[Rfam]
RNA sequence: UUAAGUUCUCAGGGCGGGGUGAAAGUCCCCACCGGCGGUGAAGGCUUCGGCCUCAAGCCCGCGAGCGCCUUCCGGAAACGGGAGGGUCAGCAGAUCCGGUGCGAUUCCGGGGCCGACGGUUACAGUCCGGAUGGAAGAGAACGUAC
Number, nucleotide and partner (000 for none) at each position: 001u000002u000003a144004a000005g142006u141007u140008c139009u138010c137011a000012g000013g000014g000015c000016g000017g029018g028019g027020u000021g000022a000023a000024a000025g000026u000027c019028c018029c017030c000031a126032c125033c115034g114035g062036c061037g060038g059039u000040g000041a000042a000043g000044g000045c000046u000047u000048c000049g000050g000051c000052c000053u000054c000055a000056a000057g113058c112059c038060c037061g036062c035063g000064a000065g091066c090067g000068c000069c000070u000071u000072c000073c000074g000075g000076a000077a000078a000079c000080g000081g000082g000083a000084g000085g000086g000087u000088c000089a000090g066091c065092a000093g000094a000095u111096c110097c109098g108099g107100u000101g000102c000103g000104a000105u000106u000107c099108c098109g097110g096111g095112g058113c057114c034115g033116a000117c129118g128119g127120u000121u000122a000123c000124a000125g032126u031127c119128c118129g117130g000131a000132u000133g000134g000135a000136a000137g010138a009139g008140a007141a006142c005143g000144u003145a000146c000
The family of this 146-nucleotide RNA sequence from Mesorhizobium sp. ORS 3428 is "FMN riboswitch aptamer (RFN element)".